A member of the RNA family "Listeria sRNA rliD" from Facklamia miroungae, 314 nucleotides long.
A reference for the family is Mandin et al. (2007), "Identification of new noncoding RNAs in Listeria monocytogenes and prediction of mRNA targets", Nucleic Acids Res.
RNA sequence: CCGUUAAGGGAAAGAAAUUCAUGGAUGAUGGGCUUUUAGACGCGACAGCUGCUGUUAAGACCACCGUAUCGCCAUAACGAACCAAGACAGCACCAUUAGCCUGCUUAGCCAUUUGCCCCACUUCAACGAUUAGGGGACGGCCUCCCCAGCUUGUUUCAAAAACUUGUUUAGUUAUCAUGUAAUAACUCCUUUUUAGUGUAUUUAUCAUUCGGAGUAGCACUAAACAAAAAUCAACCGUCUAUUUUAUUAAACGACUCAUUUUUGUAUAGUGUGAAACUCCGAACAAAUCUAUAUGUAAUAUAACAAAAAGGAUG
Numbered sequence: 001c002c003g004u005u006a007a008g009g010g011a012a013a014g015a016a017a018u019u020c021a022u023g024g025a026u027g028a029u030g031g032g033c034u035u036u037u038a039g040a041c042g043c044g045a046c047a048g049c050u051g052c053u054g055u056u057a058a059g060a061c062c063a064c065c066g067u068a069u070c071g072c073c074a075u076a077a078c079g080a081a082c083c084a085a086g087a088c089a090g091c092a093c094c095a096u097u098a099g100c101c102u103g104c105u106u107a108g109c110c111a112u113u114u115g116c117c118c119c120a121c122u123u124c125a126a127c128g129a130u131u132a133g134g135g136g137a138c139g140g141c142c143u144c145c146c147c148a149g150c151u152u153g154u155u156u157c158a159a160a161a162a163c164u165u166g167u168u169u170a171g172u173u174a175u176c177a178u179g180u181a182a183u184a185a186c187u188c189c190u191u192u193u194u195a196g197u198g199u200a201u202u203u204a205u206c207a208u209u210c211g212g213a214g215u216a217g218c219a220c221u222a223a224a225c226a227a228a229a230a231u232c233a234a235c236c237g238u239c240u241a242u243u244u245u246a247u248u249a250a251a252c253g254a255c256u257c258a259u260u261u262u263u264g265u266a267u268a269g270u271g272u273g274a275a276a277c278u279c280c281g282a283a284c285a286a287a288u289c290u291a292u293a294u295g296u297a298a299u300a301u302a303a304c305a306a307a308a309a310g311g312a313u314g
Stems, first nucleotide, its partner, number of pairs: 003252003008248002011245003014218001017215002022211004026079002029077001030043001032041001034039001048067002051064001054061002102207002105204001107202001110198004122158001125155005135145002165177002168174001257314003260308005265302004271296003

The base pairs follow the family's consensus structure, which was predicted with RNAalifold. It is annotated as an antisense RNA.